[Rfam]
RNA sequence: UCCUCAUUUCGCAUACUCUCUCGCCGGUCAGAGAGGCGAAAGAGUGUGCGAAAUGAAGAAA
Numbered sequence: 001u002c003c004u005c006a007u008u009u010c011g012c013a014u015a016c017u018c019u020c021u022c023g024c025c026g027g028u029c030a031g032a033g034a035g036g037c038g039a040a041a042g043a044g045u046g047u048g049c050g051a052a053a054u055g056a057a058g059a060a061a
Stems, first nucleotide, its partner, number of pairs: 001059002004056004010050001012048006019041001021039002